[Rfam]
Nucleotides: 146
Base pairs, nucleotide, nucleotide: 004143005142006141007140008139009138010137017029018028019027031126032125033116034115035060036059037058038057055114056113063092064091096112097111098110099109100108118129119128120127
Number, partner (000 for none) and nucleotide at each position: 001000c002000a003000a004143c005142g006141u007140u008139c009138u010137c011000a012000g013000g014000g015000c016000g017029g018028g019027g020000u021000g022000c023000g024000a025000u026000u027019c028018c029017c030000c031126a032125c033116c034115g035060g036059c037058g038057g039000u040000a041000a042000u043000g044000g045000c046000c047000u048000u049000g050000g051000c052000c053000u054000a055114g056113c057038c058037c059036g060035c061000g062000a063092g064091c065000g066000c067000u068000u069000g070000c071000c072000a073000g074000u075000u076000a077000u078000g079000c080000u081000u082000g083000c084000a085000a086000g087000g088000u089000c090000a091064g092063c093000a094000g095000a096112c097111c098110c099109g100108g101000u102000g103000u104000g105000a106000u107000c108100c109099c110098g111097g112096g113056g114055c115034c116033g117000a118129c119128g120127g121000u122000a123000u124000a125032g126031u127120c128119c129118g130000g131000a132000u133000g134000a135000g136000a137010g138009a139008g140007a141006g142005c143004g144000g145000g146000a
Rfam assigns this 146-nucleotide sequence from Pseudomonas saudiphocaensis to the family "FMN riboswitch aptamer (RFN element)". A search with the family's covariance model found it, with a score of 120 bits. From the family's description: The RFN element is a highly conserved domain that is found frequently in the 5'-untranslated regions of prokaryotic mRNAs that encode for flavin mononucleotide (FMN) biosynthesis and transport proteins. This element is a metabolite-dependent riboswitch that directly binds FMN in the absence of proteins. In Bacillus subtilis, the riboswitch most likely controls gene expression by causing premature transcription termination within the 5' untranslated region of the ribDEAHT operon and precluding access to the ribosome-binding site of ypaA mRNA.The FMN riboswitch structure, reported in present an FMN-bound six-stem junction, adopts a butterfly-like scaffold, stapled together by opposingly directed but nearly identically folded peripheral domains.